[Rfam]
RNA sequence: GCCGAGCCAGGUGACGUGGGCUUGUAACCCUAGUGGGGGCAUUAAAGUGGUAGGACGUUAUUCCUUCUCAAAUGACUAGUCUCAGGUUAGCUAAAUUUCUGGCUCGCCCGUUCCAAGCCUGGAGUUGAAUCAAGCUAUUCGAGCGAAAGCUUGAGUUGCUUGGCUCCUAGAGUGGAGGAUAACGCGUGAGGCUGGCUUCACAGAGCAGCGACUACCUCCCUCUUUCGGCAGUGGAAGGAUAACGAGUCGGUGUCACCCGGGUCCACAUUGUCAGAUGGGCUGUUCUCUAACUGGACCACCACUUUU
Numbered sequence: 001g002c003c004g005a006g007c008c009a010g011g012u013g014a015c016g017u018g019g020g021c022u023u024g025u026a027a028c029c030c031u032a033g034u035g036g037g038g039g040c041a042u043u044a045a046a047g048u049g050g051u052a053g054g055a056c057g058u059u060a061u062u063c064c065u066u067c068u069c070a071a072a073u074g075a076c077u078a079g080u081c082u083c084a085g086g087u088u089a090g091c092u093a094a095a096u097u098u099c100u101g102g103c104u105c106g107c108c109c110g111u112u113c114c115a116a117g118c119c120u121g122g123a124g125u126u127g128a129a130u131c132a133a134g135c136u137a138u139u140c141g142a143g144c145g146a147a148a149g150c151u152u153g154a155g156u157u158g159c160u161u162g163g164c165u166c167c168u169a170g171a172g173u174g175g176a177g178g179a180u181a182a183c184g185c186g187u188g189a190g191g192c193u194g195g196c197u198u199c200a201c202a203g204a205g206c207a208g209c210g211a212c213u214a215c216c217u218c219c220c221u222c223u224u225u226c227g228g229c230a231g232u233g234g235a236a237g238g239a240u241a242a243c244g245a246g247u248c249g250g251u252g253u254c255a256c257c258c259g260g261g262u263c264c265a266c267a268u269u270g271u272c273a274g275a276u277g278g279g280c281u282g283u284u285c286u287c288u289a290a291c292u293g294g295a296c297c298a299c300c301a302c303u304u305u306u
Stems, first nucleotide, its partner, number of pairs: 001040003004023005010017001028037003044305008053296001056293002058290003063282001066279001068278003073273004079263001081261003085257002088255001090253001092252002099250008108238002111236005117229003121225004127166002130163006137156008167172001174219005185210003192203003
The family of this 306-nucleotide sequence from Manihot esculenta is "Plant signal recognition particle RNA". The family's consensus secondary structure is taken from published work. It scores 222 bits against the family's covariance model. Its Rfam clan is "SRP clan".